Rfam assigns this 166-nucleotide sequence from Molossus molossus to the family "Hovlinc ribozyme (hominin vlincRNA-located)". NCBI's taxonomy places the organism under Eukaryota, Eumetazoa, Bilateria, Boreoeutheria, Molossus. It scores 127 bits against the family's covariance model. Rfam describes the family as follows. Hovlinc is a recently evolved class of self-cleaving ribozyme found in a very long non coding RNA (vlincRNA) in hominins, including humans (genus Homo), and chimpanzees and bonobos (genus Pan), but missing in gorillas (genus Gorilla). Pairs were carried over by alignment from the consensus structure, which is taken from published work.
RNA sequence: ACCUGGACUGUUCCAGGAAUAUGGUGAUUCAAAGCCGGACAGUCCAUGUGCUUAAUCAAGAUAAGAUCUUUUCUCCGACACUGUGCCAACUCAUGAUUCUCAUGACGGGUGCUUGGGGAGAUCUGGACUAGGAAUCAGAUGACCUAUGAUUUUGUCAGUCACUGCC
Numbered sequence: 001a002c003c004u005g006g007a008c009u010g011u012u013c014c015a016g017g018a019a020u021a022u023g024g025u026g027a028u029u030c031a032a033a034g035c036c037g038g039a040c041a042g043u044c045c046a047u048g049u050g051c052u053u054a055a056u057c058a059a060g061a062u063a064a065g066a067u068c069u070u071u072u073c074u075c076c077g078a079c080a081c082u083g084u085g086c087c088a089a090c091u092c093a094u095g096a097u098u099c100u101c102a103u104g105a106c107g108g109g110u111g112c113u114u115g116g117g118g119a120g121a122u123c124u125g126g127a128c129u130a131g132g133a134a135u136c137a138g139a140u141g142a143c144c145u146a147u148g149a150u151u152u153u154g155u156c157a158g159u160c161a162c163u164g165c166c
Base pairs, nucleotide, nucleotide: 010166012164016160017159024153026151029149030148031147033145034144045083046082051132052131053130054129070121071120072119073118074117075116091105092104093103094102095101096100106141107140110137111136113134114133